[Rfam]
RNA sequence: UGUUUUUGAGGUGAGAAAAGGUUCCUCAUGCGCUGCUUUGCAGUAAAUAGAGAUGCAGGAUACGCCGACCUGCCAAAAACA
Numbered sequence: 001u002g003u004u005u006u007u008g009a010g011g012u013g014a015g016a017a018a019a020g021g022u023u024c025c026u027c028a029u030g031c032g033c034u035g036c037u038u039u040g041c042a043g044u045a046a047a048u049a050g051a052g053a054u055g056c057a058g059g060a061u062a063c064g065c066c067g068a069c070c071u072g073c074c075a076a077a078a079a080c081a
Stems, first nucleotide, its partner, number of pairs: 001081008011029005020066003031050001032044004055073005